[Rfam]
Shown here is a 166-nucleotide RNA from Culex quinquefasciatus, a member of the family "U1 spliceosomal RNA".
Its family is annotated with U1 snRNP, mRNA 5'-splice site recognition and pre-mRNA 5'-splice site binding in the Gene Ontology.
The family is grouped with related families in Rfam's "U1 clan".
Taxonomically the source falls in Culex pipiens complex (Eukaryota, Panorpida, Culicoidea, Culicinae).

RNA sequence: AUACUUACCUGGCACAGGGGUUACCGUGAUCAUAAAGGCGGUUCCCCCAGGGCGAGGCCUCUUCAUUGCACUCCGAAGUGGGCUGACCCUUGCGAUUGUCCCUCAUGUGGAUAACUCGUGUGUACAAUUUUUGGUAGCCCGGGGUCAGCGUGCGCGCAGACCAAGA
Numbered sequence: 001a002u003a004c005u006u007a008c009c010u011g012g013c014a015c016a017g018g019g020g021u022u023a024c025c026g027u028g029a030u031c032a033u034a035a036a037g038g039c040g041g042u043u044c045c046c047c048c049a050g051g052g053c054g055a056g057g058c059c060u061c062u063u064c065a066u067u068g069c070a071c072u073c074c075g076a077a078g079u080g081g082g083c084u085g086a087c088c089c090u091u092g093c094g095a096u097u098g099u100c101c102c103u104c105a106u107g108u109g110g111a112u113a114a115c116u117c118g119u120g121u122g123u124a125c126a127a128u129u130u131u132u133g134g135u136a137g138c139c140c141g142g143g144g145u146c147a148g149c150g151u152g153c154g155c156g157c158a159g160a161c162c163a164a165g166a
Stems, first nucleotide, its partner, number of pairs: 012123004017047004023042005049091004054087001056084003060080001062078001063076002093118003096114003100110002139165001142162002145160001148157003